[Rfam]
RNA: 6S / SsrS RNA
Nucleotides: 189
Base pairs, nucleotide, nucleotide: 006183007182008181009180010179011178012177013176014175015174017173018172019171034160035156039152040151055136056135057134059132060131061130062129066126068125069124070123071122072121073120080113081112085109086108087107089105
Number, partner (000 for none) and nucleotide at each position: 001000c002000u003000u004000u005000c006183c007182c008181u009180g010179c011178c012177u013176g014175g015174u016000g017173c018172g019171u020000g021000g022000a023000c024000u025000u026000g027000u028000g029000u030000a031000u032000a033000a034160a035156u036000a037000a038000c039152c040151c041000u042000a043000c044000a045000c046000u047000u048000u049000u050000a051000a052000a053000u054000c055136g056135g057134g058000a059132g060131c061130u062129u063000u064000g065000c066126u067000c068125c069124g070123g071122c072121g073120g074000c075000a076000g077000a078000c079000c080113g081112c082000a083000g084000a085109c086108c087107u088000c089105c090000c091000g092000g093000c094000u095000u096000u097000u098000g099000c100000u101000g102000g103000a104000a105089g106000a107087a108086g109085g110000g111000a112081g113080u114000g115000g116000a117000a118000a119000c120073c121072c122071g123070u124069u125068g126066g127000g128000c129062g130061g131060g132059c133000a134057c135056c136055c137000a138000c139000c140000u141000g142000u143000c144000u145000u146000u147000c148000g149000u150000a151040g152039g153000c154000a155000g156035g157000u158000u159000a160034u161000u162000u163000c164000g165000c166000a167000c168000a169000u170000u171019a172018c173017g174015g175014c176013c177012a178011g179010g180009c181008g182007g183006g184000a185000u186000u187000u188000u189000u